Notes:
Rfam assigns this 162-nucleotide RNA from Caballeronia telluris to the family "Burkholderia sRNA 2". The literature on the family includes a 2017 paper in Microbiology by Ghosh et al., "Identification of novel small RNAs in Burkholderia cenocepacia KC-01 expressed under iron limitation and oxidative stress conditions". Lineage of the source: Bacteria > Pseudomonadati > Pseudomonadota > Burkholderiaceae > Caballeronia.
RNA sequence: AUGAGCGCCUGUCCACCCCAUUCCUCCUGCCGUAGCGCCCGCCACCACGCGCCUUUCAGCGCGGUCGGCAUGGACCCGGGCUACGUGGCGAAGGACAGCGUGAGGCGCCUCUUGACCGAUGUCGAGCCGCUGUUUCCCAUCAACGGGACGGCGGCUUUUUUG
Numbered sequence: 001a002u003g004a005g006c007g008c009c010u011g012u013c014c015a016c017c018c019c020a021u022u023c024c025u026c027c028u029g030c031c032g033u034a035g036c037g038c039c040c041g042c043c044a045c046c047a048c049g050c051g052c053c054u055u056u057c058a059g060c061g062c063g064g065u066c067g068g069c070a071u072g073g074a075c076c077c078g079g080g081c082u083a084c085g086u087g088g089c090g091a092a093g094g095a096c097a098g099c100g101u102g103a104g105g106c107g108c109c110u111c112u113u114g115a116c117c118g119a120u121g122u123c124g125a126g127c128c129g130c131u132g133u134u135u136c137c138c139a140u141c142a143a144c145g146g147g148a149c150g151g152c153g154g155c156u157u158u159u160u161u162g
Stems, first nucleotide, its partner, number of pairs: 007038002009035004014029002040107004048100003113124004125156006134148004
Rfam classes the family as a small RNA. About the family: Upregulated in response to iron ion depletion.